Annotation
This 81-nucleotide RNA from Sphingobium vermicomposti belongs to the Rfam family "ZMP/ZTP riboswitch aptamer (pfl RNA motif)". Pairs were carried over by alignment from the consensus structure, which is taken from published work. The organism belongs to Sphingobium, within Bacteria.
[Rfam]
RNA sequence: CUGCGUUUGCGUGACUGGCGAGGAAGGUGGAGCACCACCGUGGAGCGCGAAACUUAGCUGCCGCUCGCCUGGGCACCCUUU
Numbered sequence: 001c002u003g004c005g006u007u008u009g010c011g012u013g014a015c016u017g018g019c020g021a022g023g024a025a026g027g028u029g030g031a032g033c034a035c036c037a038c039c040g041u042g043g044a045g046c047g048c049g050a051a052a053c054u055u056a057g058c059u060g061c062c063g064c065u066c067g068c069c070u071g072g073g074c075a076c077c078c079u080u081u
Stems, first nucleotide, its partner, number of pairs: 003054001006051007015042001017069005027038004059075004